[Rfam]
About this RNA: This 145-nucleotide RNA sequence from Papaver nudicaule belongs to the Rfam family "Small nucleolar RNA snoR2/U65". Its family is annotated with nucleolus and RNA processing in the Gene Ontology. A search with the family's covariance model found it, with a score of 48 bits. Its Rfam clan is "SNORA65 clan". Rfam classes the family as an H/ACA-box small nucleolar RNA.

RNA sequence: GGUCCGAACCUUGUUGAUGGUAGCCAUUAAGUUGGCAAUGACCAUCAAUGCUAUGAUUGGACCUAUAAAAUCAACACACCAUCUUUCUGUUCUUCAUGUUGAUGAUUUCUGUUUUUAUUUGGAUCUACUGUCUGAAAUAACCUUG
Numbered sequence: 001g002g003u004c005c006g007a008a009c010c011u012u013g014u015u016g017a018u019g020g021u022a023g024c025c026a027u028u029a030a031g032u033u034g035g036c037a038a039u040g041a042c043c044a045u046c047a048a049u050g051c052u053a054u055g056a057u058u059g060g061a062c063c064u065a066u067a068a069a070a071u072c073a074a075c076a077c078a079c080c081a082u083c084u085u086u087c088u089g090u091u092c093u094u095c096a097u098g099u100u101g102a103u104g105a106u107u108u109c110u111g112u113u114u115u116u117a118u119u120u121g122g123a124u125c126u127a128c129u130g131u132c133u134g135a136a137a138u139a140a141c142c143u144u145g
Base pairs, nucleotide, nucleotide: 002062003061004060005059006058007057008054012050013049014048015047016046017045019043020042021041023036024035025034093136094135095134096133105124106123107122108121